The record is a 114-nucleotide part of an RNA from Saccharomyces arboricola, which matches "Saccharomyces telomerase" in Rfam. It is annotated as a non-coding RNA gene.
RNA sequence: UAUAUAUAUAUAAAUGGUUUAUUCUGGUGUUUCCAUUUUUUAGUAGAUUUUUGCCUUUUACGAGAAUAAGUUUUACCAUAACAUUAAAAAAAGGUAUAAAGAAAAAUCUAUUCA
Numbered sequence: 001u002a003u004a005u006a007u008a009u010a011u012a013a014a015u016g017g018u019u020u021a022u023u024c025u026g027g028u029g030u031u032u033c034c035a036u037u038u039u040u041u042a043g044u045a046g047a048u049u050u051u052u053g054c055c056u057u058u059u060a061c062g063a064g065a066a067u068a069a070g071u072u073u074u075a076c077c078a079u080a081a082c083a084u085u086a087a088a089a090a091a092a093g094g095u096a097u098a099a100a101g102a103a104a105a106a107u108c109u110a111u112u113c114a
Stems, first nucleotide, its partner, number of pairs: 010040001012038006018070008042112010

The source organism's lineage runs through Eukaryota, Opisthokonta, saccharomyceta, Saccharomycetes and Saccharomyces arboricola.